[Rfam]
RNA sequence: CGGGAGAACCCUGGUCAAGGAACUCGGCAAAUUGGCACCGUAACUUCGGGAGAAGGUGUGCCCUGUUAGGGUGAAGGGAUUUACUCCUGGAGCCCGAGAGGGUUGCAGCGAAGAGGCGGUGGCGACUGUUUACUAAAAACACAGGACUCUGCUAAGUCGCAAGACGAUGUAUAGGGUCUGACGCCUGCCCGGUGCCGGAAGGUGAAGGGGAAGGGUUAGCUUCCUUGGAGGCGAAGCUCUGAACCGAAGCCCCGGUAAACGGCGGCCGUAACUAUAACGGUCCUAAGGUAGCGAAAUUCCUUGUCGGGUAAGUUCCGACCUGCAUGAAUGGCGUAACGAUCGCCGCGCUGUCUCGACCAGGGACCCG
Dot-bracket structure: ((((....((((((((.(((..............(((((....(....).....)))))(((((......(((((....)))))..............)))))(...).......(((((((((..(((.........)))..(((((((((...(((....)))...)..))))))))..((((.(((..(((((((..(((...((...(((((..(((((....)))))...)))))...))...))))))))..)))))((((((.......))))))(...).....(.........((((((.....))))))).........))))...)).)))))))....))).)))))))).))))
Shown here is a 367-nucleotide part of an RNA from Candidatus Desulfofervidus auxilii, a member of the family "Bacterial large subunit ribosomal RNA". On this family, see Cannone et al., BMC Bioinformatics 2002: "The comparative RNA web (CRW) site: an online database of comparative sequence and structure information for ribosomal, intron, and other RNAs". The source organism's lineage runs through Bacteria, Thermodesulfobacteriota, Candidatus Desulfofervidia, Candidatus Desulfofervidaceae and Candidatus Desulfofervidus.